[Rfam]
RNA sequence: AAGCCAGCUGACGACUCUGCUUGCCUGAAUGUGUUACUGCAGAGAUUUUAAAAGCUGGCCAUAGCUGAAGCCAUCUUAUGAGCCUUAAGGGCACUGAAAUCAUUAAGGUUCCUGAAAAUGGCUACAAUA
Numbered sequence: 001a002a003g004c005c006a007g008c009u010g011a012c013g014a015c016u017c018u019g020c021u022u023g024c025c026u027g028a029a030u031g032u033g034u035u036a037c038u039g040c041a042g043a044g045a046u047u048u049u050a051a052a053a054g055c056u057g058g059c060c061a062u063a064g065c066u067g068a069a070g071c072c073a074u075c076u077u078a079u080g081a082g083c084c085u086u087a088a089g090g091g092c093a094c095u096g097a098a099a100u101c102a103u104u105a106a107g108g109u110u111c112c113u114g115a116a117a118a119u120g121g122c123u124a125c126a127a128u129a
Stems, first nucleotide, its partner, number of pairs: 003059005016043005070122004082109007090101002
The family of this 129-nucleotide RNA sequence from Microcebus murinus is "Small nucleolar RNA SNORA33". A search with the family's covariance model found it, with a score of 111 bits. Rfam links the family to the GO terms nucleolus and RNA processing. Taxonomically the source falls in Microcebus (Eukaryota, Eumetazoa, Tetrapoda, Primates). About the family: ACA33 is a member of the H/ACA class of snoRNA that guide the sites of modification of uridines to pseudouridines. The family's RNA type in Rfam is H/ACA-box small nucleolar RNA.